[Rfam]
RNA: Small nucleolar RNA Z278
RNA sequence: GCUUAUGAUGAUCUUUCCAUAUUUAAUGAGGUGUAGUUUGCUUUGAGACCCUGUUUACAGGGAGAACCCCUUGAAGCUACCACAUUUUACUGACAAUAUUUGUGGAUUUUCUGAGGU
Numbered sequence: 001g002c003u004u005a006u007g008a009u010g011a012u013c014u015u016u017c018c019a020u021a022u023u024u025a026a027u028g029a030g031g032u033g034u035a036g037u038u039u040g041c042u043u044u045g046a047g048a049c050c051c052u053g054u055u056u057a058c059a060g061g062g063a064g065a066a067c068c069c070c071u072u073g074a075a076g077c078u079a080c081c082a083c084a085u086u087u088u089a090c091u092g093a094c095a096a097u098a099u100u101u102g103u104g105g106a107u108u109u110u111c112u113g114a115g116g117u
Base pairs, nucleotide, nucleotide: 001117002116003115049062050061051060052059053058